[Rfam]
RNA sequence: CUGCUCACCAGCGCUCGGUCCCUCCGUGUGGUGUGACCUGCCUGCCCUCCGUGAGCAAGAGAAACAGGACUGGUUUGGGGGUGUCCCAUCUGAGUGGACCUGGGAGACCACAGUUCUCAGUACAACA
Numbered sequence: 001c002u003g004c005u006c007a008c009c010a011g012c013g014c015u016c017g018g019u020c021c022c023u024c025c026g027u028g029u030g031g032u033g034u035g036a037c038c039u040g041c042c043u044g045c046c047c048u049c050c051g052u053g054a055g056c057a058a059g060a061g062a063a064a065c066a067g068g069a070c071u072g073g074u075u076u077g078g079g080g081g082u083g084u085c086c087c088a089u090c091u092g093a094g095u096g097g098a099c100c101u102g103g104g105a106g107a108c109c110a111c112a113g114u115u116c117u118c119a120g121u122a123c124a125a126c127a
Base pairs, nucleotide, nucleotide: 003056004055005054006053007052008051013041014040017038018037019036020035024031025030067123069121070120071119072118073117075113076112077111080109081108082107084105085104086103087102089098090097091096